[Rfam]
RNA sequence: CGGGAGCACGAGUCAAUAACUGGCAGAGGCGGGGGAACCACAAGCGGCAGCGGGGGACUGCCUUGGGGUGAAGUCCGUCAGCAGCAAGCCUCUUCCAGUGAAGGAAUCCCUCAGCGGGAUAUCUCUGUGCCGAAGCUUGCUUACGGCGGACCGGGUCUUUGAACUCUCUGACCCGAAUCCGACAGCUAACUUCGCAGGCUUUCCAGAGAGGAAUC
Numbered sequence: 001c002g003g004g005a006g007c008a009c010g011a012g013u014c015a016a017u018a019a020c021u022g023g024c025a026g027a028g029g030c031g032g033g034g035g036a037a038c039c040a041c042a043a044g045c046g047g048c049a050g051c052g053g054g055g056g057a058c059u060g061c062c063u064u065g066g067g068g069u070g071a072a073g074u075c076c077g078u079c080a081g082c083a084g085c086a087a088g089c090c091u092c093u094u095c096c097a098g099u100g101a102a103g104g105a106a107u108c109c110c111u112c113a114g115c116g117g118g119a120u121a122u123c124u125c126u127g128u129g130c131c132g133a134a135g136c137u138u139g140c141u142u143a144c145g146g147c148g149g150a151c152c153g154g155g156u157c158u159u160u161g162a163a164c165u166c167u168c169u170g171a172c173c174c175g176a177a178u179c180c181g182a183c184a185g186c187u188a189a190c191u192u193c194g195c196a197g198g199c200u201u202u203c204c205a206g207a208g209a210g211g212a213a214u215c
Base pairs, nucleotide, nucleotide: 005200006199007198013027014026029195030194031193032192033191034190039065040064066180067179068178074150075149076148077147078146079145153174154173155172156171
c-di-AMP riboswitch aptamer (ydaO/yuaA leader): a 215-nucleotide RNA from Arthrobacter nitrophenolicus. Rfam describes the family as follows. This family represents a conserved RNA structure found upstream of the ydaO and yuaA genes in Bacillus subtilis and related genes in other bacteria. The ydaO/yuaA element is thought to act as a genetic 'off' switch for the ydaO and yuaA genes in its native state. It is believed that the element may be triggered during osmotic shock leading to activation of ydaO, a predicted amino acid transporter gene, and members of the yuaA-yubG operon which code for KtrA and KtrB K+ transporters.